[Rfam]
RNA sequence: UCAGGUCGACAGCAGUGGACCGGCAGGAGUGGAGGACCCGAGCAACACGGAGCACAUCGCUCCUCGGGGUGAAGCCGCACAGCGGCCGGGCAUCUUCGUUGGCCCGAAUCCGACAGGUCAUCCUUCACAGGCGGCUGACGAAGGGUUG
Numbered sequence: 001u002c003a004g005g006u007c008g009a010c011a012g013c014a015g016u017g018g019a020c021c022g023g024c025a026g027g028a029g030u031g032g033a034g035g036a037c038c039c040g041a042g043c044a045a046c047a048c049g050g051a052g053c054a055c056a057u058c059g060c061u062c063c064u065c066g067g068g069g070u071g072a073a074g075c076c077g078c079a080c081a082g083c084g085g086c087c088g089g090g091c092a093u094c095u096u097c098g099u100u101g102g103c104c105c106g107a108a109u110c111c112g113a114c115a116g117g118u119c120a121u122c123c124u125u126c127a128c129a130g131g132c133g134g135c136u137g138a139c140g141a142a143g144g145g146u147u148g
Stems, first nucleotide, its partner, number of pairs: 001027002029128006039066004067111003075085004088105004
A member of the RNA family "c-di-AMP riboswitch aptamer (ydaO/yuaA leader)" from Streptomyces sp. YIM 130001, 148 nucleotides long. Taxonomically the source falls in Streptomyces (Bacteria, Bacillati, Actinomycetes, Kitasatosporales). It scores 44 bits against the family's covariance model.